[Rfam]
RNA sequence: AUUUGCGUCUUACCAGGCAUGUUUAGACGCUUGUACUAUCUCUAAUACUGCCUGGUAAUGCUGCCAAU
Numbered sequence: 001a002u003u004u005g006c007g008u009c010u011u012a013c014c015a016g017g018c019a020u021g022u023u024u025a026g027a028c029g030c031u032u033g034u035a036c037u038a039u040c041u042c043u044a045a046u047a048c049u050g051c052c053u054g055g056u057a058a059u060g061c062u063g064c065c066a067a068u
Stems, first nucleotide, its partner, number of pairs: 002067002005064003009060001010058010023045005